[Rfam]
RNA: mir-9242 microRNA precursor family
Organism: Myotis davidii
RNA sequence: GGCCUCCCUCUGUGGGACGAUCAAUCAUGGGGCUCCAUGAUCAAUCGCUUAGCAGAGGGAGGCC
Numbered sequence: 001g002g003c004c005u006c007c008c009u010c011u012g013u014g015g016g017a018c019g020a021u022c023a024a025u026c027a028u029g030g031g032g033c034u035c036c037a038u039g040a041u042c043a044a045u046c047g048c049u050u051a052g053c054a055g056a057g058g059g060a061g062g063c064c
Stems, first nucleotide, its partner, number of pairs: 001064013015050002018047004024041007